Shown here is a 407-nucleotide RNA from Eleutherodactylus coqui, a member of the family "Nuclear RNase P". It scores 161 bits against the family's covariance model. The source organism's lineage runs through Eukaryota, Vertebrata, Dipnotetrapodomorpha, Eleutherodactylidae and Eleutherodactylus. It is annotated as a ribozyme. The literature on the family includes a 1998 paper in Annu Rev Biochem by Frank and Pace, "Ribonuclease P: unity and diversity in a tRNA processing ribozyme".

RNA sequence: AGCGGAAGGGAAGCUCAAUGCUGAGGUCACGUGCUGAGUGCAUCACGCUGUGAUGUCAUCUCCCCCCCCAACCUCCGGGAAGGUCUGAGACAAGAGCCCCUCGCCGCCCUCACAGGGCGUCACCCGACAUCGGGUGAGUGAGUCCCCAGCAACCCCACGCUGGAGUGGACCGGUCCGUUACGUGGGAGGGGCAAUGCGCAGGAGACGCUGGGCGGGGUGUAGUGAGGUAGGCGGAUCGCAGAUUUGAGGUCCGCCUACUCUUCGUCUGCACCUCCCGCUCGGCUGAUGCCGCUCCUCCCCCGGGCCUUGGAAGCGACUCACGGCUGGCUCCCUGAGUCCAAUGGCUGAGACGAGGCAGCUGCCAUGUGCGCGCCCCACAACCCAAGUCAGACUACUCUCCCGCCGCU
Dot-bracket structure: ((((....(((..((((.(...((((.........((((((((((.....))))).)).))).........)))).........[[[[......((((......(((((.....)))))((((((......))))))(((((((..............((...............................................................................................................................................)).........)))))))))))..................).))))..(.(((...............))).)..........]]]].......)))...))))
Numbered sequence: 001a002g003c004g005g006a007a008g009g010g011a012a013g014c015u016c017a018a019u020g021c022u023g024a025g026g027u028c029a030c031g032u033g034c035u036g037a038g039u040g041c042a043u044c045a046c047g048c049u050g051u052g053a054u055g056u057c058a059u060c061u062c063c064c065c066c067c068c069c070a071a072c073c074u075c076c077g078g079g080a081a082g083g084u085c086u087g088a089g090a091c092a093a094g095a096g097c098c099c100c101u102c103g104c105c106g107c108c109c110u111c112a113c114a115g116g117g118c119g120u121c122a123c124c125c126g127a128c129a130u131c132g133g134g135u136g137a138g139u140g141a142g143u144c145c146c147c148a149g150c151a152a153c154c155c156c157a158c159g160c161u162g163g164a165g166u167g168g169a170c171c172g173g174u175c176c177g178u179u180a181c182g183u184g185g186g187a188g189g190g191g192c193a194a195u196g197c198g199c200a201g202g203a204g205a206c207g208c209u210g211g212g213c214g215g216g217g218u219g220u221a222g223u224g225a226g227g228u229a230g231g232c233g234g235a236u237c238g239c240a241g242a243u244u245u246g247a248g249g250u251c252c253g254c255c256u257a258c259u260c261u262u263c264g265u266c267u268g269c270a271c272c273u274c275c276c277g278c279u280c281g282g283c284u285g286a287u288g289c290c291g292c293u294c295c296u297c298c299c300c301c302g303g304g305c306c307u308u309g310g311a312a313g314c315g316a317c318u319c320a321c322g323g324c325u326g327g328c329u330c331c332c333u334g335a336g337u338c339c340a341a342u343g344g345c346u347g348a349g350a351c352g353a354g355g356c357a358g359c360u361g362c363c364a365u366g367u368g369c370g371c372g373c374c375c376c377a378c379a380a381c382c383c384a385a386g387u388c389a390g391a392c393u394a395c396u397c398u399c400c401c402g403c404c405g406c407u
Stems, first nucleotide, its partner, number of pairs: 001407004009400003014349004019344001023075004036062003039058002041055005085390004095325004105119005120137006138321007159305002352376001354374003